The family of this 46-nucleotide RNA sequence from Caloenas nicobarica is "Histone 3' UTR stem-loop". The match comes from Rfam's covariance-model search (41 bits). The family has 50 seed sequences and 44,596 matches in Rfam 15.1. About the family: The mRNAs of metazoan histone genes lack a poly-A tail. 3' end processing occurs at a site between a highly conserved stem-loop (modelled by this family) and a purine rich region around 20 nts downstream (the histone downstream element, or HDE). Taxonomically the source falls in Caloenas (Eukaryota, Sarcopterygii, Saurischia, Coelurosauria). For this family Rfam cites "NMR structure and dynamics of the RNA-binding site for the histone mRNA stem-loop binding protein" (DeJong et al., RNA, 2002).
[Rfam]
RNA sequence: ACAAAGGCUCUUUUAAGAGCCACCCACACCUACAAAAAAAGAGCUG
Numbered sequence: 001a002c003a004a005a006g007g008c009u010c011u012u013u014u015a016a017g018a019g020c021c022a023c024c025c026a027c028a029c030c031u032a033c034a035a036a037a038a039a040a041g042a043g044c045u046g
Stems, first nucleotide, its partner, number of pairs: 006021006